[Rfam]
RNA: mir-750 microRNA precursor family
Organism: Galleria mellonella
RNA sequence: UAUACGUCUGAGUUGGACAGGGGAUCUUGACAGUUUAAUAUCUAACGCUGCCAGAUCUAUCUUUCCAGCUCACGCGUGAA
Dot-bracket structure: (.(((((.(((((((((.(((((((((.(.((((............))))).)))))).))).))))))))).))))).)